[Rfam]
RNA sequence: GAUUGAAGGAAGCAAGGUAAUGAGCACAAAAAAUGAAUCGUGUCUCUAGGCCUGCUUUUAAUGCCUUCCGGUUUUGAUUUUGGGGCAUGGUUCCAUCGUAUAACU
Numbered sequence: 001g002a003u004u005g006a007a008g009g010a011a012g013c014a015a016g017g018u019a020a021u022g023a024g025c026a027c028a029a030a031a032a033a034u035g036a037a038u039c040g041u042g043u044c045u046c047u048a049g050g051c052c053u054g055c056u057u058u059u060a061a062u063g064c065c066u067u068c069c070g071g072u073u074u075u076g077a078u079u080u081u082g083g084g085g086c087a088u089g090g091u092u093c094c095a096u097c098g099u100a101u102a103a104c105u
Stems, first nucleotide, its partner, number of pairs: 012025002040088005050078001052076001054072003
The record is a 105-nucleotide RNA sequence from Rhododendron simsii, which matches "Small nucleolar RNA snoR100" in Rfam.
Rfam classes the family as an H/ACA-box small nucleolar RNA.
Lineage of the source: Eukaryota > Embryophyta > eudicotyledons > Ericoideae > Rhododendron.